[Rfam]
RNA: Glycine riboswitch aptamer
Organism: Aliishimia ponticola
RNA sequence: ACGCUAAACGUGGGAGAACCGGCCUCGCCGGUGCCGAAGGAGCAACCGCCCCGGAAACUCUCAGGCCCAAGGGACCGCGUCUUGGCG
Numbered sequence: 001a002c003g004c005u006a007a008a009c010g011u012g013g014g015a016g017a018a019c020c021g022g023c024c025u026c027g028c029c030g031g032u033g034c035c036g037a038a039g040g041a042g043c044a045a046c047c048g049c050c051c052c053g054g055a056a057a058c059u060c061u062c063a064g065g066c067c068c069a070a071g072g073g074a075c076c077g078c079g080u081c082u083u084g085g086c087g
Stems, first nucleotide, its partner, number of pairs: 006082001008080006019031004033066003036062002040060003046054002